[Rfam]
RNA: c-di-GMP-II-GAG riboswitch aptamer
RNA sequence: ACGUGAGCGGGAGGCUCUGACACGCGGCCCAUACACCGGUCGCCGGGACCGCGCCGAGCCACUGGCGAGACCGACCCGCCUCGG
Dot-bracket structure: .((.(.(((((.(((.......(((((.(........[[[[[[[..).)))))....)))...]]]]]..]]..)))))).)).